About this RNA
The record is a 135-nucleotide RNA sequence, which matches "Small nucleolar RNA SNORA42/SNORA80 family" in Rfam. Rfam links the family to the GO terms RNA processing and nucleolus.
[Rfam]
RNA sequence: GCAUGGGUUUGGAUUUAUGAUGGGCUGGAUUCCCUAGGCCUCUCAUAGUACCCCAUGCCAGAGCAAACUGUAGCCCCAACCAUUGCCGGGCCUCUAUGCCUGUAGGCUGCUGGCACUGAAGUGGGUUGCACAGUA
Numbered sequence: 001g002c003a004u005g006g007g008u009u010u011g012g013a014u015u016u017a018u019g020a021u022g023g024g025c026u027g028g029a030u031u032c033c034c035u036a037g038g039c040c041u042c043u044c045a046u047a048g049u050a051c052c053c054c055a056u057g058c059c060a061g062a063g064c065a066a067a068c069u070g071u072a073g074c075c076c077c078a079a080c081c082a083u084u085g086c087c088g089g090g091c092c093u094c095u096a097u098g099c100c101u102g103u104a105g106g107c108u109g110c111u112g113g114c115a116c117u118g119a120a121g122u123g124g125g126u127u128g129c130a131c132a133g134u135a
Base pairs, nucleotide, nucleotide: 001058002057003056004055005053006052007051008050015048016047017046018045019044020043022041023040024039025037026036071128072127073126074125075124076123081118082117086113087112089108090107091106092105093104
Dot-bracket structure: ((((((((......((((((.(((((.........)).))).)))))).)))).))))............((((((....((...((.(((((..........)))))...))...))....)))))).......
Rfam 15.1 lists 1,535 matches to the family in 183 species. A reference for the family is Schattner et al. (2006), "A computational screen for mammalian pseudouridylation guide H/ACA RNAs", RNA. The members of this family belong to the H/ACA class of snoRNAs that guide the sites of modification of uridines to pseudouridines. Human ACA42 (SNORA42) was cloned from HeLa cells by immunoprecipitation with anti-GAR1 antibody. Its is predicted to guide the pseudouridylation of residues U109 and U572 of 18S rRNA. ACA42 shares the same host gene with ACA26, ACA46, ACA50.